This 99-nucleotide RNA from Loigolactobacillus coryniformis belongs to the Rfam family "Purine riboswitch aptamer".

[Rfam]
RNA sequence: UGCUUUUUCUAUCACUCUGCUUAUAUAAUGCCAUAAUCUGGUUGGCGAGUUUCUACCCUGAACCGUAAAUUCGGGACUAUAAGCAAAAAAGUGGUCGUA
Numbered sequence: 001u002g003c004u005u006u007u008u009c010u011a012u013c014a015c016u017c018u019g020c021u022u023a024u025a026u027a028a029u030g031c032c033a034u035a036a037u038c039u040g041g042u043u044g045g046c047g048a049g050u051u052u053c054u055a056c057c058c059u060g061a062a063c064c065g066u067a068a069a070u071u072c073g074g075g076a077c078u079a080u081a082a083g084c085a086a087a088a089a090a091g092u093g094g095u096c097g098u099a
Stems, first nucleotide, its partner, number of pairs: 018085008029047005057075006